Shown here is a 104-nucleotide sequence from Sphingobacterium paucimobilis, a member of the family "SAM riboswitch aptamer (S box leader)". Clan: SAM clan. Gene Ontology term of the family: regulation of gene expression. The base pairs follow the family's consensus structure, which is taken from published work. The source organism's lineage runs through Bacteria, Sphingobacteriia, Sphingobacteriales, Sphingobacterium and Sphingobacterium paucimobilis.

[Rfam]
RNA sequence: UGCUUAUAGAGAAAGGCCGAGGGAAUAGACCCGCUGAAGCCUUAGCAACCUGACACUGUUCAAGGUGCUACAUUCUACCCUCCAAUUGGCGGGAAAGAUAAGCU
Numbered sequence: 001u002g003c004u005u006a007u008a009g010a011g012a013a014a015g016g017c018c019g020a021g022g023g024a025a026u027a028g029a030c031c032c033g034c035u036g037a038a039g040c041c042u043u044a045g046c047a048a049c050c051u052g053a054c055a056c057u058g059u060u061c062a063a064g065g066u067g068c069u070a071c072a073u074u075c076u077a078c079c080c081u082c083c084a085a086u087u088g089g090c091g092g093g094a095a096a097g098a099u100a101a102g103c104u
Base pairs, nucleotide, nucleotide: 002103003102004101005100006099007098013043014042015041016040017039021032022031023030026077027076028075029074044069045068046067047066049065050064052060053059054058073096078093079092080091082089083088